[Rfam]
RNA sequence: GGUCGGCUGACCCACUGAAGUCGUCUUGCAGGAGAGGGCUUCAAACCACCUAAAGGUGCUGUGUUUAAGAGGCAUGGUAUCGAGCGUUUAGGAAAAGGUUCUGUCAUGAGCAGAAUCAGGU
Dot-bracket structure: (((.((.....)))))((((((.((((....)))).))))))....(.((((((((.(((.((((.....)))).))).)).....))))))....((((((.........))))))..).

Rfam assigns this 121-nucleotide sequence from Draconibacterium aestuarii to the family "Group II catalytic intron D1-D4-2". The base pairs follow the family's consensus structure. Group II introns are found in rRNA, tRNA and mRNA of organelles in fungi, plants and protists, and also in mRNA in bacteria. The match comes from Rfam's covariance-model search (95 bits). Lineage of the source: Bacteria > Pseudomonadati > Bacteroidia > Marinilabiliales > Draconibacterium.